[Rfam]
RNA sequence: AAAUAAGCAAUAGCCAAUUUCUUGUUCCAUCGAGAGGGUUGGUAUUGCUCAUUUUUUA
Number, nucleotide and partner (000 for none) at each position: 001a054002a053003a052004u051005a000006a049007g048008c047009a046010a045011u044012a043013g000014c041015c000016a000017a000018u000019u036020u035021c034022u033023u032024g031025u000026u000027c000028c000029a000030u000031c024032g023033a022034g021035a020036g019037g000038g000039u000040u000041g014042g000043u012044a011045u010046u009047g008048c007049u006050c000051a004052u003053u002054u001055u000056u000057u000058a000
RNA: Plastid-psbA-3 3UTR RNA